[Rfam]
The family of this 42-nucleotide RNA is "eL15-Euryarchaeota ribosomal protein leader".
Rfam's curators put it in the seed alignment.
RNA sequence: AGGGAUCAAGUCCCUUGGAUGUGGCGUAAGCUGAACAAAGAG
Numbered sequence: 001a002g003g004g005a006u007c008a009a010g011u012c013c014c015u016u017g018g019a020u021g022u023g024g025c026g027u028a029a030g031c032u033g034a035a036c037a038a039a040g041a042g
Base pairs, nucleotide, nucleotide: 001015002014003013004012005011016038018036023032024031025030